[Rfam]
RNA sequence: GUGGGCUACGGAGACAUGUGCCCCACCACGUUGGGCGGCAAGAUUGUGGGGACUCUGUGCGCCAUCGCCGGCGUCUUGACCAUCGCCCUUCCCGUGCCCGUCAUCGUGUCCAAC
Numbered sequence: 001g002u003g004g005g006c007u008a009c010g011g012a013g014a015c016a017u018g019u020g021c022c023c024c025a026c027c028a029c030g031u032u033g034g035g036c037g038g039c040a041a042g043a044u045u046g047u048g049g050g051g052a053c054u055c056u057g058u059g060c061g062c063c064a065u066c067g068c069c070g071g072c073g074u075c076u077u078g079a080c081c082a083u084c085g086c087c088c089u090u091c092c093c094g095u096g097c098c099c100g101u102c103a104u105c106g107u108g109u110c111c112a113a114c
Stems, first nucleotide, its partner, number of pairs: 001114002004111002007108005013102003018097004037077002040074001049063002
Rfam assigns this 114-nucleotide sequence from Nothoprocta perdicaria to the family "Potassium channel RNA editing signal". It scores 109 bits against the family's covariance model. The family's RNA type in Rfam is cis-regulatory element. The organism belongs to Nothoprocta, within Eukaryota.